[Rfam]
RNA sequence: AUAAAAAAACCCCUGCAGUUGUCUGCAGGGACCUUUGAUGCUUAUUCGUUCCCGCGCAUCGAAAGGAACGUCUAAGCCAAAGGAAAAGGGAGAGGAGAAACCGGAGGAAGAACUUAUGGGGAACGUAAGUCUUCUCCGCGG
Numbered sequence: 001a002u003a004a005a006a007a008a009a010c011c012c013c014u015g016c017a018g019u020u021g022u023c024u025g026c027a028g029g030g031a032c033c034u035u036u037g038a039u040g041c042u043u044a045u046u047c048g049u050u051c052c053c054g055c056g057c058a059u060c061g062a063a064a065g066g067a068a069c070g071u072c073u074a075a076g077c078c079a080a081a082g083g084a085a086a087a088g089g090g091a092g093a094g095g096a097g098a099a100a101c102c103g104g105a106g107g108a109a110g111a112a113c114u115u116a117u118g119g120g121g122a123a124c125g126u127a128a129g130u131c132u133u134c135u136c137c138g139c140g141g
Stems, first nucleotide, its partner, number of pairs: 011030008032089004040077005102138004107134004112130005
A member of the RNA family "ylbH leader" from Anoxybacteroides amylolyticum, 141 nucleotides long. Pairs were carried over by alignment from the consensus structure. The source organism's lineage runs through Bacteria, Bacillota, Bacilli, Anoxybacillaceae and Anoxybacteroides. This family is a putative regulatory RNA structure that is found upstream of the ylbH gene in B. subtilis and related low GC Gram-positive bacteria. Gene Ontology term of the family: regulation of gene expression. The match comes from Rfam's covariance-model search (91 bits).